[Rfam]
RNA sequence: GUAGAUGCUCAUUCCAUCCCUUAUGUUCGCCUUAGGCUUCAUAAACCCUGGGAAUGAUGCAGAGCCGAUUUAGGGUGCCUAUUGCCUACCAGAACGAUGAAAGGUUGCUUGCAGCUGUUUCAUCAUACUCAGGGCAUUACGUUGAGUGAGGCACCGCCCCUGUUGUCCUAGACCUGAUUGCUUUUCUUAUACACUUGCCGGUUCGGCAAGUGUUUUUUU
Numbered sequence: 001g002u003a004g005a006u007g008c009u010c011a012u013u014c015c016a017u018c019c020c021u022u023a024u025g026u027u028c029g030c031c032u033u034a035g036g037c038u039u040c041a042u043a044a045a046c047c048c049u050g051g052g053a054a055u056g057a058u059g060c061a062g063a064g065c066c067g068a069u070u071u072a073g074g075g076u077g078c079c080u081a082u083u084g085c086c087u088a089c090c091a092g093a094a095c096g097a098u099g100a101a102a103g104g105u106u107g108c109u110u111g112c113a114g115c116u117g118u119u120u121c122a123u124c125a126u127a128c129u130c131a132g133g134g135c136a137u138u139a140c141g142u143u144g145a146g147u148g149a150g151g152c153a154c155c156g157c158c159c160c161u162g163u164u165g166u167c168c169u170a171g172a173c174c175u176g177a178u179u180g181c182u183u184u185u186c187u188u189a190u191a192c193a194c195u196u197g198c199c200g201g202u203u204c205g206g207c208a209a210g211u212g213u214u215u216u217u218u219u
Stems, first nucleotide, its partner, number of pairs: 001065002006061003009057004015052001017051001027036001074155007084135004096124007165173003191213010

Description: Rfam assigns this 219-nucleotide RNA sequence from Gibbsiella quercinecans to the family "GlmZ RNA activator of glmS mRNA". Taxonomically the source falls in Gibbsiella (Bacteria, Pseudomonadota, Gammaproteobacteria, Yersiniaceae). About the family: This RNA was discovered in E. coli during a large scale screen. The sraJ gene was expressed in early logarithmic phase, but its level decreased with cell growth. Specific cleavage products of this RNA were found. Identified in Yersinia pseudotuberculosis as Ysr248/153/sR016.